The record is a 66-nucleotide sequence from Bombyx mori, which matches "mir-2774 microRNA precursor family" in Rfam. For this family Rfam cites "MicroRNAs of Bombyx mori identified by Solexa sequencing" (Liu et al., BMC Genomics, 2010). Gene Ontology terms of the family: RISC complex and miRNA-mediated post-transcriptional gene silencing. It scores 75 bits against the family's covariance model. NCBI's taxonomy places the organism under Eukaryota, Opisthokonta, Arthropoda, Allotriocarida, Bombyx.

RNA sequence: ACAACAUACGGACCGUCGGUCUACCGAGCAAUAUCACCCGCUCGGUCGAAGAUUUUCCCUUUGAGU
Numbered sequence: 001a002c003a004a005c006a007u008a009c010g011g012a013c014c015g016u017c018g019g020u021c022u023a024c025c026g027a028g029c030a031a032u033a034u035c036a037c038c039c040g041c042u043c044g045g046u047c048g049a050a051g052a053u054u055u056u057c058c059c060u061u062u063g064a065g066u
Stems, first nucleotide, its partner, number of pairs: 005063002010058003015053003020049002023046007